Rfam assigns this 58-nucleotide RNA from Endobacterium cereale to the family "terC RNA".

[Rfam]
RNA sequence: CGUGGGAUCCGGGCCCCUCUGGCGUAUACCGGACAAUACGUGAUGUCGGAUCCCCUUU
Numbered sequence: 001c002g003u004g005g006g007a008u009c010c011g012g013g014c015c016c017c018u019c020u021g022g023c024g025u026a027u028a029c030c031g032g033a034c035a036a037u038a039c040g041u042g043a044u045g046u047c048g049g050a051u052c053c054c055c056u057u058u
Stems, first nucleotide, its partner, number of pairs: 006052007022041006
Dot-bracket structure: .....(((((((.........((((((........))))))....)))))))......
Overview
The organism belongs to Endobacterium, within Bacteria. The family's consensus secondary structure is taken from published work.